This 78-nucleotide RNA sequence from Orycteropus afer belongs to the Rfam family "Small nucleolar RNA R38".
Taxonomically the source falls in Orycteropus afer (Eukaryota, Metazoa, Chordata, Tubulidentata).
Rfam 15.1 lists 2,295 matches to the family in 1,305 species.
snoR38 is a C/D box small nucleolar RNA conserved across yeast, human, Arabidopsis and rice. It is encoded in the intron of elongation factor-1 gamma in both pombe and cerevisiae. snoR38 guides the methylation of 2'-O-ribose sites in 28S rRNA.
It scores 62 bits against the family's covariance model.

RNA sequence: UUGAGCUGAGGAUGAGUUUAAGUUAUCCCUGUCUGAAACAACUUCUUCUGUGAGGAGUUCAGACUUGCUGAGGCUCAA
Numbered sequence: 001u002u003g004a005g006c007u008g009a010g011g012a013u014g015a016g017u018u019u020a021a022g023u024u025a026u027c028c029c030u031g032u033c034u035g036a037a038a039c040a041a042c043u044u045c046u047u048c049u050g051u052g053a054g055g056a057g058u059u060c061a062g063a064c065u066u067g068c069u070g071a072g073g074c075u076c077a078a
Stems, first nucleotide, its partner, number of pairs: 001078007